[Rfam]
A member of the RNA family "c-di-GMP-I riboswitch aptamer" from Alginatibacterium sediminis, 77 nucleotides long. A search with the family's covariance model found it, with a score of 45 bits.
RNA sequence: AUCGUGAUUUGCCAAACUUGAAGUGAUUCAAGGUCGGAAAGUUACAGGUCUCCUAGCGAGAUGGCUGAACUGCAUUG
Numbered sequence: 001a002u003c004g005u006g007a008u009u010u011g012c013c014a015a016a017c018u019u020g021a022a023g024u025g026a027u028u029c030a031a032g033g034u035c036g037g038a039a040a041g042u043u044a045c046a047g048g049u050c051u052c053c054u055a056g057c058g059a060g061a062u063g064g065c066u067g068a069a070c071u072g073c074a075u076u077g
Stems, first nucleotide, its partner, number of pairs: 012037002017032006040071004045067003048062005
Dot-bracket structure: ...........((...((((((....))))))...))..((((.((((((((.....)))))..)))))))......